A member of the RNA family "RNase MRP" from Aspergillus terreus, 352 nucleotides long.
RNA sequence: UCCUCGCUCAAAGGAUCGCAUUCAAAGCUCACACACAGAGUACGCCUUCUAGGAUGCUCUCUCUCUUCUUCCGAGGAGAGGCCAAGCUUUGGGGAAAGUCCCCGGACAUCCUGACUUCCUAUUCCGGUCAGGCAAUGCGGAAACGCGCCGCCAUAGAAGCAAUUUGACAGCGGCUGACUGCCCUAUUCUCUCCCGGCGCUCACGCCCUGCCCGACACCUCGGUGGAAACAAUGGUGGUAUGGCUGGCGUCGGAGAGAGGUUUAUCGGGUUGCCAUUCGUCGUGGUUCAAUAGUCAUGCGAUUGCCCGGUCAUUGGACUGGGUAACCCAACGGGGCUCAUUCUCGAGGCGAGG
Dot-bracket structure: .((((((((.(..((((((..(((((((.........(((.(.(....................).).)))..............)))))))....[[.[[[[................................((((....))))................................................(.((....)).).(.(....(((.(((...((((.............................)))).)))))).).).......................)))))).((((((......)))))).........]]]]]].....).)).))))))
RNase MRP is an enzymatically active ribonucleoprotein with two distinct roles in eukaryotes. In mitochondria it plays a direct role in the initiation of mitochondrial DNA replication. In the nucleus it is involved in precursor rRNA processing, where it cleaves the internal transcribed spacer 1 between 18S and 5.8S rRNAs. Despite distinct functions, RNase MRP has been shown to be evolutionarily related to RNase P. Like eukaryotic RNase P, RNase MRP is not catalytically active without associated protein subunits.
Lineage of the source: Eukaryota > Ascomycota > Pezizomycotina > Aspergillaceae > Aspergillus subgen. Circumdati.
Rfam 15.1 lists 3,510 matches to the family in 2,315 species.
Pairs were carried over by alignment from the consensus structure, which is taken from published work.
Its family is annotated with ribonuclease MRP activity, rRNA processing and ribonuclease MRP complex in the Gene Ontology.